[Rfam]
RNA: Molybdenum/Tungsten riboswitch aptamer (Moco RNA motif)
RNA sequence: AUUUAGAACAAACUCCGAGCAAAAGUAUCUAAGGAAUUUUUAUGAUAUUGCGCUAAAGCAUUUAUGCUUUCGGGUUAUACGGGAAACGGUAUAGCCUUCUGUUUUUGAAAAGGAGCAUUAAUUUCACAAGC
Numbered sequence: 001a002u003u004u005a006g007a008a009c010a011a012a013c014u015c016c017g018a019g020c021a022a023a024a025g026u027a028u029c030u031a032a033g034g035a036a037u038u039u040u041u042a043u044g045a046u047a048u049u050g051c052g053c054u055a056a057a058g059c060a061u062u063u064a065u066g067c068u069u070u071c072g073g074g075u076u077a078u079a080c081g082g083g084a085a086a087c088g089g090u091a092u093a094g095c096c097u098u099c100u101g102u103u104u105u106u107g108a109a110a111a112g113g114a115g116c117a118u119u120a121a122u123u124u125c126a127c128a129a130g131c
Stems, first nucleotide, its partner, number of pairs: 006122001013115004019053002023049001025048005033041003055070005072097009082087001098108002